[Rfam]
RNA: t44 RNA
RNA sequence: GGUGAGCCAAGGGAAAUCCACACAUGUUCCGUCACAUGGCCCUGGGUGCCCCCGCAAUUCGUGGGGUUGGGUCAUGAGGGAACAUGGAGGCCCAAC
Numbered sequence: 001g002g003u004g005a006g007c008c009a010a011g012g013g014a015a016a017u018c019c020a021c022a023c024a025u026g027u028u029c030c031g032u033c034a035c036a037u038g039g040c041c042c043u044g045g046g047u048g049c050c051c052c053c054g055c056a057a058u059u060c061g062u063g064g065g066g067u068u069g070g071g072u073c074a075u076g077a078g079g080g081a082a083c084a085u086g087g088a089g090g091c092c093c094a095a096c
Stems, first nucleotide, its partner, number of pairs: 023086008035076008048067005